[Rfam]
RNA sequence: AUGAACCGCUAGGGGAGCCCUUUUGAAGGGCUGAGAUCGGAGUGUGACUCCGAGACCCUCAGAACCUGAUCUGGUUAACACCAGCGUAGGGAAGUGGUGUAAUGGUCUA
Numbered sequence: 001a002u003g004a005a006c007c008g009c010u011a012g013g014g015g016a017g018c019c020c021u022u023u024u025g026a027a028g029g030g031c032u033g034a035g036a037u038c039g040g041a042g043u044g045u046g047a048c049u050c051c052g053a054g055a056c057c058c059u060c061a062g063a064a065c066c067u068g069a070u071c072u073g074g075u076u077a078a079c080a081c082c083a084g085c086g087u088a089g090g091g092a093a094g095u096g097g098u099g100u101a102a103u104g105g106u107c108u109a
Stems, first nucleotide, its partner, number of pairs: 006097005011059004017031005038052005065090004071084004
Dot-bracket structure: .....(((((((((..(((((.....)))))......(((((.....)))))...)))).....((((..((((......))))..))))..)))))............

Shown here is a 109-nucleotide RNA from Metabacillus indicus, a member of the family "TPP riboswitch aptamer (THI element)". Taxonomically the source falls in Metabacillus (Bacteria, Bacillati, Bacilli, Caryophanales).